About this RNA: This 54-nucleotide sequence from Astyanax mexicanus belongs to the Rfam family "UnaL2 LINE 3' element". The family's consensus secondary structure is taken from published work. Taxonomically the source falls in Astyanax (Eukaryota, Metazoa, Gnathostomata, Otophysi). On this family, see Baba et al., RNA 2004: "Solution structure of an RNA stem-loop derived from the 3' conserved region of eel LINE UnaL2".
RNA sequence: UUCUAUUACUAUUGUAAGUCGCUUUGGACAAAAGCGUCUGCCAAAUGUAAUGUA
Numbered sequence: 001u002u003c004u005a006u007u008a009c010u011a012u013u014g015u016a017a018g019u020c021g022c023u024u025u026g027g028a029c030a031a032a033a034g035c036g037u038c039u040g041c042c043a044a045a046u047g048u049a050a051u052g053u054a
Stems, first nucleotide, its partner, number of pairs: 013043001014041003020036006